This 60-nucleotide sequence belongs to the Rfam family "Transposase-1 RNA". Rfam classes the family as a small RNA. The family's consensus secondary structure is taken from published work.
RNA sequence: CGUUAGGAGAAUGUCACUGUCAUUACCCACUACGAGUGGAUAUGGGAAUACAUUUGUGGA
Numbered sequence: 001c002g003u004u005a006g007g008a009g010a011a012u013g014u015c016a017c018u019g020u021c022a023u024u025a026c027c028c029a030c031u032a033c034g035a036g037u038g039g040a041u042a043u044g045g046g047a048a049u050a051c052a053u054u055u056g057u058g059g060a
Stems, first nucleotide, its partner, number of pairs: 009055006020045004027039003